Rfam assigns this 76-nucleotide sequence from Branchiostoma floridae to the family "mir-190 microRNA precursor family". The family has 76 seed sequences and 1,667 matches in Rfam 15.1. Gene Ontology terms of the family: miRNA-mediated post-transcriptional gene silencing and RISC complex. It is one of the family's seed sequences. A reference for the family is Bar et al. (2008), "MicroRNA discovery and profiling in human embryonic stem cells by deep sequencing of small RNA libraries", Stem Cells.
RNA sequence: UGUUCUGGGUGAUAUGUUUGAUAUUUGGUUGUUAACUUCUAUCCAACCAAUAUAUCAAACAUAUGAUCCAAGGCCC
Numbered sequence: 001u002g003u004u005c006u007g008g009g010u011g012a013u014a015u016g017u018u019u020g021a022u023a024u025u026u027g028g029u030u031g032u033u034a035a036c037u038u039c040u041a042u043c044c045a046a047c048c049a050a051u052a053u054a055u056c057a058a059a060c061a062u063a064u065g066a067u068c069c070a071a072g073g074c075c076c
Base pairs, nucleotide, nucleotide: 005072006071008069009068012064013063014062015061016060017059018058019057020056021055022054023053024052027048028047029046030045031044